Description: The record is an 86-nucleotide RNA from Volucribacter psittacicida, which matches "sRNA-Xcc1" in Rfam. The source organism's lineage runs through Bacteria, Pseudomonadati, Pseudomonadota, Gammaproteobacteria and Volucribacter. The family's RNA type in Rfam is small RNA. Pairs were carried over by alignment from the consensus structure, which was predicted with RNAalifold. The literature on the family includes a 2011 paper in RNA Biol by Chen et al., "sRNA-Xcc1, an integron-encoded transposon- and plasmid-transferred trans-acting sRNA, is under the positive control of the key virulence regulators HrpG and HrpX of Xanthomonas campestris pathovar campestris".
RNA sequence: GCCGAGAGGGCGGAGAAUAUAAGACCCGAAAGGGGAAUAAUCCCGACCGUUCCUUUGGCGGUUUUCGAACCUCUUGGCAACCCUAU
Numbered sequence: 001g002c003c004g005a006g007a008g009g010g011c012g013g014a015g016a017a018u019a020u021a022a023g024a025c026c027c028g029a030a031a032g033g034g035g036a037a038u039a040a041u042c043c044c045g046a047c048c049g050u051u052c053c054u055u056u057g058g059c060g061g062u063u064u065u066c067g068a069a070c071c072u073c074u075u076g077g078c079a080a081c082c083c084u085a086u
Stems, first nucleotide, its partner, number of pairs: 001078009013044001015042002025034003045063006